[Rfam]
RNA sequence: AUCCAAUAUUGAUUUAUCUGUGUUUAGCUGCGAAGCUAGCACUUUUUAAUAUCUAAUUUUUUAAUUUAUUAUAAUCUUAGAUAUGAGAUAAAUUUGGGAAACCUGAGGAUCUUUUAUUUUUCAUUAAAUAAGAUUCUUUCUUUAGUUUAGAUAUAAUUUAAAUUUUAUCUUGUAUUUAAAUCUAAUAACGUAUUUUCUCUUCAUUAACAAAAGGUAUGUACAAAUCGGAUGGAGACCGAGUGAUCAUGUAAGAUCAAUAAGAUGUAAUGGUAAAAACAUGCUUAACUGAGAGACCUAUAAGUCGAACAGAUACGUAAGUAGGGCAUAAUGACCCGGCGGUAUAUUAUGGAAUAGCCGUCGAUUAAUAGAUAA
Numbered sequence: 001a002u003c004c005a006a007u008a009u010u011g012a013u014u015u016a017u018c019u020g021u022g023u024u025u026a027g028c029u030g031c032g033a034a035g036c037u038a039g040c041a042c043u044u045u046u047u048a049a050u051a052u053c054u055a056a057u058u059u060u061u062u063a064a065u066u067u068a069u070u071a072u073a074a075u076c077u078u079a080g081a082u083a084u085g086a087g088a089u090a091a092a093u094u095u096g097g098g099a100a101a102c103c104u105g106a107g108g109a110u111c112u113u114u115u116a117u118u119u120u121u122c123a124u125u126a127a128a129u130a131a132g133a134u135u136c137u138u139u140c141u142u143u144a145g146u147u148u149a150g151a152u153a154u155a156a157u158u159u160a161a162a163u164u165u166u167a168u169c170u171u172g173u174a175u176u177u178a179a180a181u182c183u184a185a186u187a188a189c190g191u192a193u194u195u196u197c198u199c200u201u202c203a204u205u206a207a208c209a210a211a212a213g214g215u216a217u218g219u220a221c222a223a224a225u226c227g228g229a230u231g232g233a234g235a236c237c238g239a240g241u242g243a244u245c246a247u248g249u250a251a252g253a254u255c256a257a258u259a260a261g262a263u264g265u266a267a268u269g270g271u272a273a274a275a276a277c278a279u280g281c282u283u284a285a286c287u288g289a290g291a292g293a294c295c296u297a298u299a300a301g302u303c304g305a306a307c308a309g310a311u312a313c314g315u316a317a318g319u320a321g322g323g324c325a326u327a328a329u330g331a332c333c334c335g336g337c338g339g340u341a342u343a344u345u346a347u348g349g350a351a352u353a354g355c356c357g358u359c360g361a362u363u364a365a366u367a368g369a370u371a372a
Stems, first nucleotide, its partner, number of pairs: 001366001003323002013280001015278001017276001018261002021256002262271002286309003292303003311320003334360007342353002
Dot-bracket structure: (.((........(.(.(((.((........................................................................................................................................................................................................................................))...))((......))....).).).....(((...(((......)))...))).(((....))).))..........(((((((.((........))))))))).....)......